[Rfam]
RNA sequence: UCUGAAACUCUGGCGUGGAUACAGAGAAGCUGGGGUUUCAGA
Numbered sequence: 001u002c003u004g005a006a007a008c009u010c011u012g013g014c015g016u017g018g019a020u021a022c023a024g025a026g027a028a029g030c031u032g033g034g035g036u037u038u039c040a041g042a
Base pairs, nucleotide, nucleotide: 001042002041003040004039005038006037007036008035010033011032012031013030014029
Shown here is a 42-nucleotide RNA from Albula goreensis, a member of the family "MAT2A 3'UTR stem loop D". It scores 38 bits against the family's covariance model. The family has 35 seed sequences and 422 matches in Rfam 15.1. The source organism's lineage runs through Eukaryota, Eumetazoa, Deuterostomia, Albulidae and Albula. On this family, see Parker et al., Genome Res 2011: "New families of human regulatory RNA structures identified by comparative analysis of vertebrate genomes".